[Rfam]
RNA: MIR1520 microRNA precursor family
Organism: Glycine soja
RNA sequence: UUCUUAUUGGAUGAUGACUAUCACGUGUCAUGUUCUGAUUGGAUGUCAACUUUAUGGAAGAUGAAAUGCAUUGUUGUUGUCGUUGAUCAAUCAGAACAUGACACCCGUCAUCAUCCAAUAAGAACGUGACACGUGACAGUUAACAUUC
Number, nucleotide and partner (000 for none) at each position: 001u000002u000003c000004u000005u000006a000007u000008u000009g000010g000011a000012u000013g000014a000015u000016g000017a000018c000019u000020a000021u136022c135023a134024c000025g132026u131027g000028u000029c128030a127031u126032g000033u124034u123035c122036u121037g000038a119039u118040u117041g116042g115043a114044u113045g112046u000047c000048a000049a000050c000051u000052u000053u000054a000055u000056g000057g000058a000059a000060g000061a000062u000063g000064a000065a000066a000067u000068g000069c000070a000071u000072u000073g000074u000075u000076g000077u000078u000079g000080u000081c000082g000083u000084u000085g000086a000087u000088c000089a000090a000091u000092c000093a000094g000095a000096a000097c000098a000099u000100g000101a000102c000103a000104c000105c000106c000107g000108u000109c000110a000111u000112c045113a044114u043115c042116c041117a040118a039119u038120a000121a036122g035123a034124a033125c000126g031127u030128g029129a000130c000131a026132c025133g000134u023135g022136a021137c000138a000139g000140u000141u000142a000143a000144c000145a000146u000147u000148c000